RNA sequence: UUGGGUGGUAGUGUCUUCCUGGCGCAUUUGUUAAGUGUUCAAAUGGGCCCGACUCUGCCACAUACAUUAUGCAGGAGCUGGCAAAGGCUUAGAGACAAAGAAGUCUCUCUUGAGUGUUUCCUAAUAACAGAUUGGCUCCC
Numbered sequence: 001u002u003g004g005g006u007g008g009u010a011g012u013g014u015c016u017u018c019c020u021g022g023c024g025c026a027u028u029u030g031u032u033a034a035g036u037g038u039u040c041a042a043a044u045g046g047g048c049c050c051g052a053c054u055c056u057g058c059c060a061c062a063u064a065c066a067u068u069a070u071g072c073a074g075g076a077g078c079u080g081g082c083a084a085a086g087g088c089u090u091a092g093a094g095a096c097a098a099a100g101a102a103g104u105c106u107c108u109c110u111u112g113a114g115u116g117u118u119u120c121c122u123a124a125u126a127a128c129a130g131a132u133u134g135g136c137u138c139c140c
Base pairs, nucleotide, nucleotide: 005061006060007059008058009057010056011055021049022048023047025045026044027043028042029041030040074139075138076137077136078135079134080089081088082087106131107130108129110127
This 140-nucleotide sequence belongs to the Rfam family "Small nucleolar RNA SNORA12". Pairs were carried over by alignment from the consensus structure, which was predicted with RNAalifold. From the family's description: U108 belongs to the H/ACA family of snoRNAs. The sequence is predicted to guide the pseudouridylation of the U372 residue in the 28S rRNA subunit. However it has not been reported as a pseudouridylation site. It is one of the family's seed sequences. It is annotated as an H/ACA-box small nucleolar RNA. Rfam links the family to the GO terms RNA processing and nucleolus. A reference for the family is Gu et al. (2005), "A novel experimental approach for systematic identification of box H/ACA snoRNAs from eukaryotes", Nucleic Acids Res.